[Rfam]
Annotation: The record is a 96-nucleotide RNA from Subdoligranulum variabile, which matches "PreQ1-III (pre queuosine) riboswitch aptamer" in Rfam. The source organism's lineage runs through Bacteria, Bacillota, Eubacteriales, Oscillospiraceae and Subdoligranulum variabile.

RNA sequence: GAGCAACUUAGGAUUUUAGGCUCCGCCGCAGCUUCCGCGGCGCAAACCGGUGUCAGGCUGGCGGUCUGGCAUGCGGUCAAAAUCUAUCCGCCGGAG
Numbered sequence: 001g002a003g004c005a006a007c008u009u010a011g012g013a014u015u016u017u018a019g020g021c022u023c024c025g026c027c028g029c030a031g032c033u034u035c036c037g038c039g040g041c042g043c044a045a046a047c048c049g050g051u052g053u054c055a056g057g058c059u060g061g062c063g064g065u066c067u068g069g070c071a072u073g074c075g076g077u078c079a080a081a082a083u084c085u086a087u088c089c090g091c092c093g094g095a096g
Stems, first nucleotide, its partner, number of pairs: 001023004011085006024042006031035001046077003051071007